RNA sequence: AUACUUACCUGGACGGGGUCAAUGGGUGAUCAAGAAGACCCACGGCUUAGGUCGGUGACCUCCAUUGCACUUCGGAGGGGUGCCGGUCUAAGGUCUGUCCACAGUGACAGAGCCUACGUCAUAAUUUGUGGUAGCGGGGGCCUGCGUUCGCGCGGCCCUUGU
Dot-bracket structure: ...........(((((((((..(((((..........))))).)))))(((.(.(((.(((((..........)).))).)))..)))).((((((.((......)).))).))).))))..............(((((...((((....))))..))))).